[Rfam]
Rfam assigns this 119-nucleotide RNA sequence from Helicobacter pullorum to the family "Bacterial antisense RNA HPnc0260". Taxonomically the source falls in Helicobacter pullorum (Bacteria, Epsilonproteobacteria, Campylobacterales, Helicobacter). Rfam's curators put it in the seed alignment.
RNA sequence: GGAAUUAUAUAUAUAUCUUAGCUUAAAAUUAUUUUUGAUAAAUUGAUAGAAUUUUGGAGAUAAUUUGGAGAAUCAAAAAAUGGUGGCCACGACUGGACUUGAACCAGCGACCACUACCA
Number, nucleotide and partner (000 for none) at each position: 001g000002g000003a000004a000005u000006u000007a000008u000009a000010u000011a000012u000013a000014u000015a000016u000017c000018u000019u000020a000021g000022c000023u000024u037025a036026a035027a000028a000029u000030u000031a000032u000033u000034u000035u026036u025037g024038a000039u000040a000041a000042a000043u000044u000045g000046a000047u000048a000049g000050a000051a000052u060053u000054u000055u000056g000057g000058a000059g000060a052061u000062a000063a000064u000065u000066u000067g000068g000069a000070g000071a000072a000073u000074c000075a000076a000077a000078a000079a000080a000081u116082g115083g114084u113085g112086g111087c000088c000089a000090c109091g108092a000093c107094u106095g105096g104097a000098c000099u000100u000101g000102a000103a000104c096105c095106a094107g093108c091109g090110a000111c086112c085113a084114c083115u082116a081117c000118c000119a000

On this family, see Sharma et al., Nature 2010: "The primary transcriptome of the major human pathogen Helicobacter pylori".